A member of the RNA family "Streptomyces sRNA 4677" from Streptomyces viridosporus, 251 nucleotides long. Rfam 15.1 lists 563 matches to the family in 285 species. The base pairs follow the family's consensus structure. Located in the intergenic region between anti-sigma factor SCO4677 gene and a putative regulatory protein gene SCO4676. scr4677 expression requires the SCO4677 activity and scr4677 sRNA itself seem to affect the levels of the SCO4676-associated transcripts. The sequence is in the family's curated seed alignment. Lineage of the source: Bacteria > Bacillati > Actinomycetota > Streptomycetaceae > Streptomyces viridosporus.
[Rfam]
RNA sequence: CGUUCCGGUGCCGUCUGCGACUGAAGGACAAAGAACGCCGGGGGAAAGCACCCCACCGAGCCCCACCCCUCCCGCCCGUGGUCGCACUCACUCGGGCGGGUGAACAUCCCCGAACCGGCUGGAUUUCGCAGCCCUUGAAGCCCGACGCUCAGCGCAACGAACACACCACAACCACAGACAUGAGACGGCCCCCGCCGGGACGGCAAUCCCAGUGCGAGGGCCUGACCACCGAGGAAGGUAAAGGCUUCCCG
Numbered sequence: 001c002g003u004u005c006c007g008g009u010g011c012c013g014u015c016u017g018c019g020a021c022u023g024a025a026g027g028a029c030a031a032a033g034a035a036c037g038c039c040g041g042g043g044g045a046a047a048g049c050a051c052c053c054c055a056c057c058g059a060g061c062c063c064c065a066c067c068c069c070u071c072c073c074g075c076c077c078g079u080g081g082u083c084g085c086a087c088u089c090a091c092u093c094g095g096g097c098g099g100g101u102g103a104a105c106a107u108c109c110c111c112g113a114a115c116c117g118g119c120u121g122g123a124u125u126u127c128g129c130a131g132c133c134c135u136u137g138a139a140g141c142c143c144g145a146c147g148c149u150c151a152g153c154g155c156a157a158c159g160a161a162c163a164c165a166c167c168a169c170a171a172c173c174a175c176a177g178a179c180a181u182g183a184g185a186c187g188g189c190c191c192c193c194g195c196c197g198g199g200a201c202g203g204c205a206a207u208c209c210c211a212g213u214g215c216g217a218g219g220g221c222c223u224g225a226c227c228a229c230c231g232a233g234g235a236a237g238g239u240a241a242a243g244g245c246u247u248c249c250c251g
Stems, first nucleotide, its partner, number of pairs: 007230004017075003088103006118153005187222005193216003197210004233249005